About this RNA:
The family of this 175-nucleotide sequence from Triticum aestivum is "MIR2118 microRNA precursor family". A reference for the family is Zhu et al. (2008), "A diverse set of microRNAs and microRNA-like small RNAs in developing rice grains", Genome Res. The family has 7 seed sequences and 2,377 matches in Rfam 15.1. Lineage of the source: Eukaryota > Streptophyta > Poaceae > Triticodae > Triticum. Gene Ontology terms of the family: RISC complex and miRNA-mediated post-transcriptional gene silencing.

RNA sequence: AUAUGGUGCACCGUAGAAAGAGAGAGUUCAAGAGCAAUAGGAAUGGGAACAUGGAGGAAAGCCCUCCUUGUUUGUUUGCACUUCUAGUGUUGGAGGUGCAAAUAUUUGGCAUGGAUCCUUUCCUGAUGCCUCCCAUUCCUGCGUUCUUGAUCACUCCUUCCUCUUCCUUUUGGCU
Numbered sequence: 001a002u003a004u005g006g007u008g009c010a011c012c013g014u015a016g017a018a019a020g021a022g023a024g025a026g027u028u029c030a031a032g033a034g035c036a037a038u039a040g041g042a043a044u045g046g047g048a049a050c051a052u053g054g055a056g057g058a059a060a061g062c063c064c065u066c067c068u069u070g071u072u073u074g075u076u077u078g079c080a081c082u083u084c085u086a087g088u089g090u091u092g093g094a095g096g097u098g099c100a101a102a103u104a105u106u107u108g109g110c111a112u113g114g115a116u117c118c119u120u121u122c123c124u125g126a127u128g129c130c131u132c133c134c135a136u137u138c139c140u141g142c143g144u145u146c147u148u149g150a151u152c153a154c155u156c157c158u159u160c161c162u163c164u165u166c167c168u169u170u171u172g173g174c175u
Stems, first nucleotide, its partner, number of pairs: 010165001013163001016160003022156003028150008038141011050128003054124001056123006